[Rfam]
RNA sequence: GUACGGACCCCGACGGAAGCAGGGGCGAGGGCGGGGAACCCACGUUCCCUACGCAGGGAAGCGGGACCGUUCGCCACCGAUCGGUUCCUUGGGGUGAAGUCCCACCGCACCGCGAGGUGCACCGGGACCGGACGGCCUCUCAGUCCGAACCCGACAGCUCACCUCGCAGGCGCGUACGAGAGGAAGA
Numbered sequence: 001g002u003a004c005g006g007a008c009c010c011c012g013a014c015g016g017a018a019g020c021a022g023g024g025g026c027g028a029g030g031g032c033g034g035g036g037a038a039c040c041c042a043c044g045u046u047c048c049c050u051a052c053g054c055a056g057g058g059a060a061g062c063g064g065g066a067c068c069g070u071u072c073g074c075c076a077c078c079g080a081u082c083g084g085u086u087c088c089u090u091g092g093g094g095u096g097a098a099g100u101c102c103c104a105c106c107g108c109a110c111c112g113c114g115a116g117g118u119g120c121a122c123c124g125g126g127a128c129c130g131g132a133c134g135g136c137c138u139c140u141c142a143g144u145c146c147g148a149a150c151c152c153g154a155c156a157g158c159u160c161a162c163c164u165c166g167c168a169g170g171c172g173c174g175u176a177c178g179a180g181a182g183g184a185a186g187a
Stems, first nucleotide, its partner, number of pairs: 031167006041091002092152003100127004130146004

Background
Rfam assigns this 187-nucleotide RNA sequence from Nocardia wallacei to the family "c-di-AMP riboswitch aptamer (ydaO/yuaA leader)". Taxonomically the source falls in Nocardia (Bacteria, Bacillati, Actinomycetota, Mycobacteriales). A search with the family's covariance model found it, with a score of 52 bits. Pairs were carried over by alignment from the consensus structure.